[Rfam]
Shown here is a 147-nucleotide RNA sequence from Vibrio aerogenes, a member of the family "DABA-DC-AT RNA". The match comes from Rfam's covariance-model search (138 bits). Lineage of the source: Bacteria > Pseudomonadati > Pseudomonadota > Gammaproteobacteria > Vibrio aerogenes.
RNA sequence: UCAAUUCCGGAGCGGUUUUCCGGAGGAUACGCACAGCGAACAUUCGGGCUGAUUGUGUCGCUGUGUAGGGUAGGUAUCAGCAAGUCCUUUUGUUGAUAGACGGGAUACUCUGGUCGUGGGAGCGGCAUAAACAUGGGAAACCCAACA
Numbered sequence: 001u002c003a004a005u006u007c008c009g010g011a012g013c014g015g016u017u018u019u020c021c022g023g024a025g026g027a028u029a030c031g032c033a034c035a036g037c038g039a040a041c042a043u044u045c046g047g048g049c050u051g052a053u054u055g056u057g058u059c060g061c062u063g064u065g066u067a068g069g070g071u072a073g074g075u076a077u078c079a080g081c082a083a084g085u086c087c088u089u090u091u092g093u094u095g096a097u098a099g100a101c102g103g104g105a106u107a108c109u110c111u112g113g114u115c116g117u118g119g120g121a122g123c124g125g126c127a128u129a130a131a132c133a134u135g136g137g138a139a140a141c142c143c144a145a146c147a
Base pairs, nucleotide, nucleotide: 006024007023008022009021010020011019031066032065033064034063035062036061037060038059040056041055042054075098076097077096078095079094080093081092082091083090084089113126114125115124116123117122